[Rfam]
RNA sequence: CUUGACUUGAGCUGUUCGGCCAAAAGUUGAGGCCAUCGGUCGCUCACAUCUAGUCUUUUGUUCGUUCGGCUCGAGUUAAGA
Numbered sequence: 001c002u003u004g005a006c007u008u009g010a011g012c013u014g015u016u017c018g019g020c021c022a023a024a025a026g027u028u029g030a031g032g033c034c035a036u037c038g039g040u041c042g043c044u045c046a047c048a049u050c051u052a053g054u055c056u057u058u059u060g061u062u063c064g065u066u067c068g069g070c071u072c073g074a075g076u077u078a079a080g081a
Stems, first nucleotide, its partner, number of pairs: 001080003005076009017064002021060003025056002
RNA: mir-375 microRNA precursor family